A member of the RNA family "Small nucleolar RNA SNORD82" from Callipepla squamata, 70 nucleotides long. Rfam links the family to the GO terms nucleolus and RNA processing. From the family's description: snoRNA U82 or Z25 is found in both humans and mice. The base pairs follow the family's consensus structure, which was predicted with PFOLD. It scores 62 bits against the family's covariance model. Rfam 15.1 lists 649 matches to the family in 590 species.
Nucleotides: 070
Stems, first nucleotide, its partner, number of pairs: 002070005
Number, partner (000 for none) and nucleotide at each position: 001000a002070g003069c004068a005067c006066a007000g008000a009000u010000g011000a012000u013000g014000a015000u016000u017000g018000u019000g020000a021000g022000g023000g024000a025000c026000u027000u028000a029000a030000u031000g032000c033000u034000g035000a036000a037000a038000u039000a040000u041000g042000a043000u044000g045000u046000u047000u048000u049000u050000u051000u052000u053000u054000g055000a056000g057000c058000a059000a060000u061000a062000c063000u064000g065000a066006u067005g068004u069003g070002c